[Rfam]
RNA: 6S / SsrS RNA
Organism: Alteromonas sp. 5E99-2
RNA sequence: CGUUUCCUGAGGUGUUUGCUAGUUCAUUCAUGUCCCUGGCCGAUGCUUUAAACCUAGGAAACUGACGUUUUGCUAUUGCGCAAGCUCAGCUUGUACUGAGAAGCCUACGGUGAAAAAGAGGUUUCCGCCCUGAACAUUUCGGUUCACGGGCGAAAAUGAACGGCGGUACCUUGGGAAACAC
Numbered sequence: 001c002g003u004u005u006c007c008u009g010a011g012g013u014g015u016u017u018g019c020u021a022g023u024u025c026a027u028u029c030a031u032g033u034c035c036c037u038g039g040c041c042g043a044u045g046c047u048u049u050a051a052a053c054c055u056a057g058g059a060a061a062c063u064g065a066c067g068u069u070u071u072g073c074u075a076u077u078g079c080g081c082a083a084g085c086u087c088a089g090c091u092u093g094u095a096c097u098g099a100g101a102a103g104c105c106u107a108c109g110g111u112g113a114a115a116a117a118g119a120g121g122u123u124u125c126c127g128c129c130c131u132g133a134a135c136a137u138u139u140c141g142g143u144u145c146a147c148g149g150g151c152g153a154a155a156a157u158g159a160a161c162g163g164c165g166g167u168a169c170c171u172u173g174g175g176a177a178a179c180a181c
Base pairs, nucleotide, nucleotide: 002179003178004177005176006175007174008173009172010171011170012169013168014167015166017165018164019163032151033150034149035148037146038145039144040142041141057126058125059124061122062121063120068115069114070113071112072111073110074109080104081103085100086099087098088097089096